[Rfam]
RNA sequence: UUGUUUUUUUGGCAAAGUAGGAGAAAUCCUAUGACGCAAAACUAUAGGGCCUUUAAAAUGGUAGCCAGCUGCAGAU
Dot-bracket structure: ...........((...((((((....))))))...))..(.((...(((((........)))..)))).)......
Numbered sequence: 001u002u003g004u005u006u007u008u009u010u011g012g013c014a015a016a017g018u019a020g021g022a023g024a025a026a027u028c029c030u031a032u033g034a035c036g037c038a039a040a041a042c043u044a045u046a047g048g049g050c051c052u053u054u055a056a057a058a059u060g061g062u063a064g065c066c067a068g069c070u071g072c073a074g075a076u
Stems, first nucleotide, its partner, number of pairs: 012037002017032006040070001042068002047066002049062003
Overview: The family of this 76-nucleotide RNA sequence from Propionigenium maris is "c-di-GMP-I riboswitch aptamer". The match comes from Rfam's covariance-model search (55 bits). Its Rfam clan is "c-di-GMP_I riboswitch clan". About the family: GEMM was predicted in a large-scale screen for bacterial structured RNA regulatory elements. Genes associated with GEMM are involved in a diverse array of functions, including chemotaxis regulation, signal transduction, secretion and chitin.